Description: Rfam assigns this 73-nucleotide sequence from Kosmotoga arenicorallina to the family "tRNA". Taxonomically the source falls in Kosmotoga arenicorallina (Bacteria, Thermotogota, Thermotogae, Kosmotogaceae). Gene Ontology term of the family: triplet codon-amino acid adaptor activity. Rfam classes the family as a transfer RNA.
RNA sequence: GGCGAGGUAGCUCAGAUGGUAGAGCAGUGGACUGAAAAUCCAUGUGUCGACGGUUCGAUUCCGUCCCUCGCCA
Numbered sequence: 001g002g003c004g005a006g007g008u009a010g011c012u013c014a015g016a017u018g019g020u021a022g023a024g025c026a027g028u029g030g031a032c033u034g035a036a037a038a039u040c041c042a043u044g045u046g047u048c049g050a051c052g053g054u055u056c057g058a059u060u061c062c063g064u065c066c067c068u069c070g071c072c073a
Base pairs, nucleotide, nucleotide: 001072002071003070004069005068006067007066010025011024012023013022027043028042029041030040031039049065050064051063052062053061